[Rfam]
RNA sequence: UGGGCUGGUCGAAAGACCCUGGUCCACCGAGCGGCGGGGAGAUUCCUC
Number, nucleotide and partner (000 for none) at each position: 001u026002g025003g024004g023005c022006u021007g018008g017009u016010c015011g000012a000013a000014a000015g010016a009017c008018c007019c000020u000021g006022g005023u004024c003025c002026a001027c000028c000029g000030a000031g000032c000033g000034g000035c000036g000037g000038g000039g000040a000041g000042a000043u000044u000045c000046c000047u000048c000